Shown here is a 131-nucleotide RNA from Bacillus subtilis, a member of the family "Ribosomal protein L20 leader". Rfam's curators write: This family is a putative r-protein leader autoregulatory structure found in B. subtilis and other low-GC Gram-positive bacteria. It is located in the 5' untranslated regions of mRNAs encoding initiation factor 3 followed by ribosomal proteins L35 and L20 (infC-rpmI-rplT). A Rho-independent transcription terminator structure that is probably involved in regulation is included at the 3' end. Lineage of the source: Bacteria > Bacilli > Caryophanales > Bacillaceae > Bacillus. The base pairs follow the family's consensus structure, which was predicted with CMfinder.
[Rfam]
RNA sequence: AAUCACAAGCAGAAGCACCCGCUUCUCACCUGAUUGACACAUGCAUGUAGUUGGCAGGUUGACCGUACAUUUUUAUUGAUACAGAUGUUCGUAGUGUGGGUGUUUUAUAAUGCCCACACUUUUUGUUUGCC
Numbered sequence: 001a002a003u004c005a006c007a008a009g010c011a012g013a014a015g016c017a018c019c020c021g022c023u024u025c026u027c028a029c030c031u032g033a034u035u036g037a038c039a040c041a042u043g044c045a046u047g048u049a050g051u052u053g054g055c056a057g058g059u060u061g062a063c064c065g066u067a068c069a070u071u072u073u074u075a076u077u078g079a080u081a082c083a084g085a086u087g088u089u090c091g092u093a094g095u096g097u098g099g100g101u102g103u104u105u106u107a108u109a110a111u112g113c114c115c116a117c118a119c120u121u122u123u124u125g126u127u128u129g130c131c
Stems, first nucleotide, its partner, number of pairs: 011026006028059003036052003039048002095118010